[Rfam]
RNA sequence: AUGCCAAUCCGGCCAAAACCGAAAGGUGCGGGGGACAGGAACGAACCGCGCAGGGCCGCUGCGAAGCAUCCGCAGCCCGCGUCCGCGCUUGGGGUGAAUCGUGCAUCAGGCAGCGCAAGCUAACAUAGCGCUGCAUGCACAUAGGGUUGAACUCCCAGCCCGAACCCGACAGCUAACCUCGCCGGCCACAGAGGAGGAUCU
Numbered sequence: 001a002u003g004c005c006a007a008u009c010c011g012g013c014c015a016a017a018a019c020c021g022a023a024a025g026g027u028g029c030g031g032g033g034g035a036c037a038g039g040a041a042c043g044a045a046c047c048g049c050g051c052a053g054g055g056c057c058g059c060u061g062c063g064a065a066g067c068a069u070c071c072g073c074a075g076c077c078c079g080c081g082u083c084c085g086c087g088c089u090u091g092g093g094g095u096g097a098a099u100c101g102u103g104c105a106u107c108a109g110g111c112a113g114c115g116c117a118a119g120c121u122a123a124c125a126u127a128g129c130g131c132u133g134c135a136u137g138c139a140c141a142u143a144g145g146g147u148u149g150a151a152c153u154c155c156c157a158g159c160c161c162g163a164a165c166c167c168g169a170c171a172g173c174u175a176a177c178c179u180c181g182c183c184g185g186c187c188a189c190a191g192a193g194g195a196g197g198a199u200c201u
Base pairs, nucleotide, nucleotide: 011187012186013185014184018027019026020025028182029181030180031179032178033177036091037090038089039088092167093166094165101140102139103138104137105136106135144161145160146159147158
RNA: c-di-AMP riboswitch aptamer (ydaO/yuaA leader)
Organism: Cohnella nanjingensis